Shown here is a 148-nucleotide RNA sequence from Taenia asiatica, a member of the family "U12 minor spliceosomal RNA". It is annotated as a spliceosomal small nuclear RNA. It scores 79 bits against the family's covariance model.

[Rfam]
RNA sequence: ACGCCUUAAACUAAUGAGUAAGGAAAAUAACGCUCCGGUGGAAUAACCGGUGUGCUGGACUAGUUCCAGGCCUAUCUUUGAAGGGCUCAGGCCUUCUCGGCGUGUCUUCCUACUCCGUGAAGACGCGCCGAUGAUAGUGGCCUACCCA
Numbered sequence: 001a002c003g004c005c006u007u008a009a010a011c012u013a014a015u016g017a018g019u020a021a022g023g024a025a026a027a028u029a030a031c032g033c034u035c036c037g038g039u040g041g042a043a044u045a046a047c048c049g050g051u052g053u054g055c056u057g058g059a060c061u062a063g064u065u066c067c068a069g070g071c072c073u074a075u076c077u078u079u080g081a082a083g084g085g086c087u088c089a090g091g092c093c094u095u096c097u098c099g100g101c102g103u104g105u106c107u108u109c110c111u112a113c114u115c116c117g118u119g120a121a122g123a124c125g126c127g128c129c130g131a132u133g134a135u136a137g138u139g140g141c142c143u144a145c146c147c148a
Stems, first nucleotide, its partner, number of pairs: 004023005032053002035050005055069004083147003089143005095137001097131002100128010